[Rfam]
RNA sequence: GAAGUCCCGCCUGGGUAAUCGUGAGCCGCGAGCCCAGUAUCGAGCCUUGCGGCGUUGCUGGUAACAGCGGCGUCGAUGCGUAGGCCAGAUAAGCAGGCGAGGUGCGCGGUUACGGGUUAUGCCGGCCCUGAAGGUGUUGAGCCCCGAAAAUUUAGUCGGAGAGUGCCGACGGGUUUGUCCCCCCGGCAGGCAACAAUCCGUGUCGCGCUCUGGCGAGCGGCAUGGGUACUCCCCGGGGUCCUAGGCCG
Numbered sequence: 001g002a003a004g005u006c007c008c009g010c011c012u013g014g015g016u017a018a019u020c021g022u023g024a025g026c027c028g029c030g031a032g033c034c035c036a037g038u039a040u041c042g043a044g045c046c047u048u049g050c051g052g053c054g055u056u057g058c059u060g061g062u063a064a065c066a067g068c069g070g071c072g073u074c075g076a077u078g079c080g081u082a083g084g085c086c087a088g089a090u091a092a093g094c095a096g097g098c099g100a101g102g103u104g105c106g107c108g109g110u111u112a113c114g115g116g117u118u119a120u121g122c123c124g125g126c127c128c129u130g131a132a133g134g135u136g137u138u139g140a141g142c143c144c145c146g147a148a149a150a151u152u153u154a155g156u157c158g159g160a161g162a163g164u165g166c167c168g169a170c171g172g173g174u175u176u177g178u179c180c181c182c183c184c185g186g187c188a189g190g191c192a193a194c195a196a197u198c199c200g201u202g203u204c205g206c207g208c209u210c211u212g213g214c215g216a217g218c219g220g221c222a223u224g225g226g227u228a229c230u231c232c233c234c235g236g237g238g239u240c241c242u243a244g245g246c247c248g
Stems, first nucleotide, its partner, number of pairs: 012036004019031004025214002038091004044085004048080002050075011139240001141239006158233002161231004165191003170185004196227011
RNA: Group II catalytic intron D1-D4-6
Organism: Thiohalocapsa sp. PB-PSB1